[Rfam]
Source information: bantam microRNA precursor family: an 81-nucleotide sequence from Zootermopsis nevadensis. Its Rfam clan is "mir-81 clan". The literature on the family includes a 2007 paper in Genome Biol by Weaver et al., "Computational and transcriptional evidence for microRNAs in the honey bee genome". The source organism's lineage runs through Eukaryota, Bilateria, Hexapoda, Polyneoptera and Zootermopsis.

RNA sequence: ACUGUGAGACGAAGCCGGUUUUCACAGUGAUUUGCCAGAUGUAUUUGACUCUGAGAUCAUUGUGAAAGCUGAUUUUGUUUG
Dot-bracket structure: ........((((((.((((((((((..((((((....................))))))..)))))))))).))))))...
Rfam links the family to the GO terms RISC complex and miRNA-mediated post-transcriptional gene silencing. Pairs were carried over by alignment from the consensus structure, which was predicted with RNAalifold.